The family of this 88-nucleotide RNA sequence from Gossypium aridum is "MIR7486 microRNA precursor family". It scores 68 bits against the family's covariance model. Rfam links the family to the GO terms miRNA-mediated post-transcriptional gene silencing and RISC complex. The family's consensus secondary structure was predicted with RNAalifold.

RNA sequence: CUCAAGGAAGCGCUUUGUCCACGUCAACAGGAAAUGCUUCCUUGAGGGGCACACUUUGUGUCCAUGUGGACAAAGCGCUUCCUUGAGG
Numbered sequence: 001c002u003c004a005a006g007g008a009a010g011c012g013c014u015u016u017g018u019c020c021a022c023g024u025c026a027a028c029a030g031g032a033a034a035u036g037c038u039u040c041c042u043u044g045a046g047g048g049g050c051a052c053a054c055u056u057u058g059u060g061u062c063c064a065u066g067u068g069g070a071c072a073a074a075g076c077g078c079u080u081c082c083u084u085g086a087g088g
Base pairs, nucleotide, nucleotide: 001087002086003085004084005083006082007081008080009079010078011077012076013075014074015073016072017071018070019069020068021067023065024064027061028060029059031057032056033055035053036052040047041046
Dot-bracket structure: (((((((((((((((((((((.((..(((.(((.((...((....))....)).))).)))..)).))))))))))))))))))))).